Overview
The family of this 100-nucleotide RNA from Hyphobacterium sp. CCMP332 is "Glycine riboswitch aptamer". The organism belongs to Hyphobacterium, within Bacteria. From the family's description: This family represents the bacterial glycine riboswitch. Glycine riboswitches usually consist of two metabolite-binding aptamers domains with similar structures in tandem. The aptamers cooperatively bind glycine to regulate the expression of downstream genes. The match comes from Rfam's covariance-model search (37 bits).
RNA sequence: CGCUGGAAAGCGGGCGCCGGAUACGGCGUCCCACCGACGGAGCAAGCCGGAGAGGGAUUGUCCUUCUUCCUGCGGAAUCUCUCAGGUCAUUAAGACAGCG
Numbered sequence: 001c002g003c004u005g006g007a008a009a010g011c012g013g014g015c016g017c018c019g020g021a022u023a024c025g026g027c028g029u030c031c032c033a034c035c036g037a038c039g040g041a042g043c044a045a046g047c048c049g050g051a052g053a054g055g056g057a058u059u060g061u062c063c064u065u066c067u068u069c070c071u072g073c074g075g076a077a078u079c080u081c082u083c084a085g086g087u088c089a090u091u092a093a094g095a096c097a098g099c100g
Stems, first nucleotide, its partner, number of pairs: 001100005012031006033087003036083002040081003046073002